[Rfam]
RNA sequence: CCAAAGGCUCUUUUAAGAGCCAUUCACAAUGCAAUAAGAGUAUUAG
Dot-bracket structure: .....((((((....)))))).........................
Numbered sequence: 001c002c003a004a005a006g007g008c009u010c011u012u013u014u015a016a017g018a019g020c021c022a023u024u025c026a027c028a029a030u031g032c033a034a035u036a037a038g039a040g041u042a043u044u045a046g
Stems, first nucleotide, its partner, number of pairs: 006021006
Rfam assigns this 46-nucleotide RNA sequence from Oncorhynchus mykiss to the family "Histone 3' UTR stem-loop".
It scores 39 bits against the family's covariance model.
The organism belongs to Oncorhynchus, within Eukaryota.
From the family's description: The mRNAs of metazoan histone genes lack a poly-A tail. 3' end processing occurs at a site between a highly conserved stem-loop (modelled by this family) and a purine rich region around 20 nts downstream (the histone downstream element, or HDE). The stem-loop is bound by a 31 kDa stem-loop binding protein (SLBP - also termed the histone hairpin binding protein, or HBP). Together with U7 snRNA binding of the HDE, SLBP binding nucleate s the formation of the processing complex.
Rfam classes the family as a cis-regulatory element.